[Rfam]
This 102-nucleotide RNA sequence from Bacillus aquiflavi belongs to the Rfam family "Purine riboswitch aptamer".
RNA sequence: AUUGAAUGAAUAAUAUUACAUCGUAUAAUGUUGGGAAUAAGGCCCAAGAGUUUCUACCGAGCUACCGUAAAUAGCUUGACUACGAGGUAACUGAUCAUAACA
Numbered sequence: 001a002u003u004g005a006a007u008g009a010a011u012a013a014u015a016u017u018a019c020a021u022c023g024u025a026u027a028a029u030g031u032u033g034g035g036a037a038u039a040a041g042g043c044c045c046a047a048g049a050g051u052u053u054c055u056a057c058c059g060a061g062c063u064a065c066c067g068u069a070a071a072u073a074g075c076u077u078g079a080c081u082a083c084g085a086g087g088u089a090a091c092u093g094a095u096c097a098u099a100a101c102a
Stems, first nucleotide, its partner, number of pairs: 018088002021085005029049001031047005058078007